[Rfam]
RNA sequence: AAGCAGGAUUCCAACUAGAAUACAGCUGUUGAGUGCUGUGCUGACAUUCCCCCUGCUCAAAAUAAAGUUGUGGGUUCUUACCUAUAUCUGUCUGCUAUACCCCUGUAGCACCCAGGGCACUUGGUCUCAUACAU
Numbered sequence: 001a002a003g004c005a006g007g008a009u010u011c012c013a014a015c016u017a018g019a020a021u022a023c024a025g026c027u028g029u030u031g032a033g034u035g036c037u038g039u040g041c042u043g044a045c046a047u048u049c050c051c052c053c054u055g056c057u058c059a060a061a062a063u064a065a066a067g068u069u070g071u072g073g074g075u076u077c078u079u080a081c082c083u084a085u086a087u088c089u090g091u092c093u094g095c096u097a098u099a100c101c102c103c104u105g106u107a108g109c110a111c112c113c114a115g116g117g118c119a120c121u122u123g124g125u126c127u128c129a130u131a132c133a134u
Stems, first nucleotide, its partner, number of pairs: 003056005019042001021040006087116004093110003
The record is a 134-nucleotide RNA from Sciurus vulgaris, which matches "Small nucleolar RNA SNORA63" in Rfam. On this family, see Mishra and Eliceiri, Proc Natl Acad Sci U S A 1997: "Three small nucleolar RNAs that are involved in ribosomal RNA precursor processing". Rfam describes the family as follows. E3 belongs to the H/ACA class of snoRNAs and is involved in the processing of eukaryotic pre-rRNA and has regions of complementarity to 18S rRNA. E3 is encoded in introns in the gene for protein synthesis initiation factor 4AII. It scores 99 bits against the family's covariance model. Rfam links the family to the GO terms RNA processing and nucleolus. Lineage of the source: Eukaryota > Boreoeutheria > Rodentia > Sciuromorpha > Sciurus.